[Rfam]
RNA sequence: ACCUGUUGCGGGUGGCAGAUGAGGGAGCCCGCAACACAAGACAGAACACCGUGCCCAGGAACAUCGGGGCACUUCAGGGCGUU
Numbered sequence: 001a002c003c004u005g006u007u008g009c010g011g012g013u014g015g016c017a018g019a020u021g022a023g024g025g026a027g028c029c030c031g032c033a034a035c036a037c038a039a040g041a042c043a044g045a046a047c048a049c050c051g052u053g054c055c056c057a058g059g060a061a062c063a064u065c066g067g068g069g070c071a072c073u074u075c076a077g078g079g080c081g082u083u
Base pairs, nucleotide, nucleotide: 004036005035006034007033008032009031010030011029012028013027016024051072052071053070054069055068056067
Dot-bracket structure: ...((((((((((..(.......)..))))))))))..............((((((..........))))))...........